[Rfam]
RNA sequence: UCAGAAAAAGGCAAACCUAUUGAGAAGUAGGGACGCAAAGUUACAGGUCCGUAUACAUACUAUCGGAUGGCUGAGCUGCCUGAA
Numbered sequence: 001u002c003a004g005a006a007a008a009a010g011g012c013a014a015a016c017c018u019a020u021u022g023a024g025a026a027g028u029a030g031g032g033a034c035g036c037a038a039a040g041u042u043a044c045a046g047g048u049c050c051g052u053a054u055a056c057a058u059a060c061u062a063u064c065g066g067a068u069g070g071c072u073g074a075g076c077u078g079c080c081u082g083a084a
Stems, first nucleotide, its partner, number of pairs: 001084001003081002011036002016031006034070001039077004044073003047068005

The record is an 84-nucleotide RNA from Gracilibacillus boraciitolerans, which matches "c-di-GMP-I-GGC riboswitch aptamer" in Rfam.
A search with the family's covariance model found it, with a score of 68 bits.
The organism belongs to Gracilibacillus boraciitolerans, within Bacteria.
For this family Rfam cites "Bioinformatic analysis of riboswitch structures uncovers variant classes with altered ligand specificity" (Weinberg et al., Proc Natl Acad Sci U S A, 2017).